[Rfam]
RNA sequence: GUAAUGGAUCGGGAUACCGCGAUGAAAAGGGAAGAAAUUUACCCUUUUCAUUGAGGAAAGUCCGGGCUCCAGAGGGCCUGAUGCCGGGUAAUGCCCGGGCUUGCUGGCCGUAAGGUCAGCAGGACAGACAGUACCACAGAAAACAUACCGCCCCUCUGUGCACGAGCACAGGGUACUGCUCGAAAGAGCAGGGGUAAGGGUGAAAAGGCGGGGUAAGAGCCCACCGCAUGACUGGUAACAGCAUGGCAGGGUAAACCUCAUCAGGAGCAAGGUCAAGCAGCGGGAAUGGAUGGCCCCUCCGAAGUACCGCGGGUAGACCGCUUGAAGAUUUUCGGUGACGAAAAUCGAAGAUAGAUGGUAUCCCUUCCCUUAAAGGGGAAGACAGAACUCGGCUUACAGGUCCAUUACCUUU
Numbered sequence: 001g002u003a004a005u006g007g008a009u010c011g012g013g014a015u016a017c018c019g020c021g022a023u024g025a026a027a028a029g030g031g032a033a034g035a036a037a038u039u040u041a042c043c044c045u046u047u048u049c050a051u052u053g054a055g056g057a058a059a060g061u062c063c064g065g066g067c068u069c070c071a072g073a074g075g076g077c078c079u080g081a082u083g084c085c086g087g088g089u090a091a092u093g094c095c096c097g098g099g100c101u102u103g104c105u106g107g108c109c110g111u112a113a114g115g116u117c118a119g120c121a122g123g124a125c126a127g128a129c130a131g132u133a134c135c136a137c138a139g140a141a142a143a144c145a146u147a148c149c150g151c152c153c154c155u156c157u158g159u160g161c162a163c164g165a166g167c168a169c170a171g172g173g174u175a176c177u178g179c180u181c182g183a184a185a186g187a188g189c190a191g192g193g194g195u196a197a198g199g200g201u202g203a204a205a206a207g208g209c210g211g212g213g214u215a216a217g218a219g220c221c222c223a224c225c226g227c228a229u230g231a232c233u234g235g236u237a238a239c240a241g242c243a244u245g246g247c248a249g250g251g252u253a254a255a256c257c258u259c260a261u262c263a264g265g266a267g268c269a270a271g272g273u274c275a276a277g278c279a280g281c282g283g284g285a286a287u288g289g290a291u292g293g294c295c296c297c298u299c300c301g302a303a304g305u306a307c308c309g310c311g312g313g314u315a316g317a318c319c320g321c322u323u324g325a326a327g328a329u330u331u332u333c334g335g336u337g338a339c340g341a342a343a344a345u346c347g348a349a350g351a352u353a354g355a356u357g358g359u360a361u362c363c364c365u366u367c368c369c370u371u372a373a374a375g376g377g378g379a380a381g382a383c384a385g386a387a388c389u390c391g392g393c394u395u396a397c398a399g400g401u402c403c404a405u406u407a408c409c410u411u412u
Base pairs, nucleotide, nucleotide: 001408002407003406004405005404006403007402008401009400010399011397012363013362014361015360016359017358018357020053021052022051023050024049025048026047027046028045029044030043031042058395059394060393062392063391064390065389066388067267068266069265070264074296075295076294077293079263080262081261082260083259084098085097086096087095088094099125100123101122102121103120104119105118106117107116108115109114126258127257131256132255133252134251135250148199149198150195151194152193153192154191155190157188207225208224210222211221212220226247227245228244229243230242232241233240234239271319272318273317274316280310281309282308283307285305288300289299290298327346328345329344330343331342332341333340334339
RNA: Bacterial RNase P class A
Organism: Treponema sp. J25